[Rfam]
Record summary
Shown here is a 48-nucleotide RNA sequence from Oceanobacillus iheyensis, a member of the family "PreQ1 (pre queuosine) riboswitch aptamer". This family is a bacterial riboswitch that binds to the metabolite preQ1, an intermediate in the biosynthesis of the modified nucleoside queuosine from GTP. One example of this riboswitch is located in the leader of the Bacillus subtilis ykvJKLM (queCDEF) operon which encodes four genes necessary for queuosine production. PreQ1 binding to the riboswitch aptamer is thought to induce premature transcription termination within the leader to down-regulate expression of these genes. Gene Ontology term of the family: queuosine biosynthetic process. Lineage of the source: Bacteria > Bacillota > Bacilli > Oceanobacillus > Oceanobacillus iheyensis. It scores 48 bits against the family's covariance model.

RNA sequence: GCAGGAGAGGUUCGCGAUUUAAAUCCCUCUAUAAAAAACUAAGGAGAU
Numbered sequence: 001g002c003a004g005g006a007g008a009g010g011u012u013c014g015c016g017a018u019u020u021a022a023a024u025c026c027c028u029c030u031a032u033a034a035a036a037a038a039c040u041a042a043g044g045a046g047a048u
Stems, first nucleotide, its partner, number of pairs: 006030005016040001